[Rfam]
RNA sequence: AAGAACGGUGAUGAGGAUAAACAGACCUGUAAUGAAUUGCGGGAAUGAUCGCAAUCAUUAUGAACAUCUAAGGGACUGAGUUCUA
Numbered sequence: 001a002a003g004a005a006c007g008g009u010g011a012u013g014a015g016g017a018u019a020a021a022c023a024g025a026c027c028u029g030u031a032a033u034g035a036a037u038u039g040c041g042g043g044a045a046u047g048a049u050c051g052c053a054a055u056c057a058u059u060a061u062g063a064a065c066a067u068c069u070a071a072g073g074g075a076c077u078g079a080g081u082u083c084u085a
Stems, first nucleotide, its partner, number of pairs: 002084005

Source information:
A member of the RNA family "Small nucleolar RNA SNORD25" from Corchorus olitorius, 85 nucleotides long. For this family Rfam cites "A mammalian gene with introns instead of exons generating stable RNA products" (Tycowski et al., Nature, 1996). The family is grouped with related families in Rfam's "SNORD25 clan". The family's consensus secondary structure was predicted with PFOLD. NCBI's taxonomy places the organism under Eukaryota, Magnoliopsida, rosids, Grewioideae, Corchorus. It is annotated as a C/D-box small nucleolar RNA. It scores 64 bits against the family's covariance model.